Background
Rfam assigns this 168-nucleotide sequence from Alkalicella caledoniensis to the family "M-box riboswitch aptamer (ykoK leader)". Rfam's curators write: M-box riboswitch, also know as ykoK leader is described as a metaloregulatory RNA that sense divalent metals and function as a genetic control element of genes related to divalent metal transport in bacteria. NCBI's taxonomy places the organism under Bacteria, Clostridia, Eubacteriales, Proteinivoracaceae, Alkalicella. Pairs were carried over by alignment from the consensus structure. A search with the family's covariance model found it, with a score of 149 bits. Gene Ontology terms of the family: response to magnesium ion and regulation of gene expression.

RNA sequence: AGGACACCUCGUUAGGUGAGGCUACUAUAUGAACAUAGGCUGUUGCCCAGAAAUGUCUAGAGACACCAAUGGGUAGAACAGGCACUUGCCGAAAUAAGGCAUGCUUAACACAGCUGAGUGAAAACUCUACGUCAUAUAGUGCUGAAACUCAAACGUAUGAGGUAGGCA
Number, nucleotide and partner (000 for none) at each position: 001a000002g000003g000004a000005c000006a163007c162008c161009u160010c159011g154012u153013u097014a000015g149016g148017u147018g000019a000020g143021g142022c141023u000024a000025c139026u138027a137028u136029a135030u134031g133032a132033a000034c000035a000036u000037a000038g000039g114040c113041u112042g111043u110044u000045g074046c073047c072048c071049a070050g000051a000052a000053a000054u065055g064056u063057c062058u000059a000060g000061a000062g057063a056064c055065a054066c000067c000068a000069a000070u049071g048072g047073g046074u045075a000076g000077a000078a000079c000080a000081g105082g104083c103084a102085c000086u000087u000088g100089c099090c098091g000092a000093a000094a000095u000096a000097a013098g090099g089100c088101a000102u084103g083104c082105u081106u000107a000108a000109c000110a043111c042112a041113g040114c039115u000116g127117a126118g125119u000120g000121a000122a000123a000124a000125c118126u117127c116128u000129a000130c000131g000132u032133c031134a030135u029136a028137u027138a026139g025140u000141g022142c021143u020144g000145a000146a000147a017148c016149u015150c000151a000152a000153a012154c011155g000156u000157a000158u000159g010160a009161g008162g007163u006164a000165g000166g000167c000168a000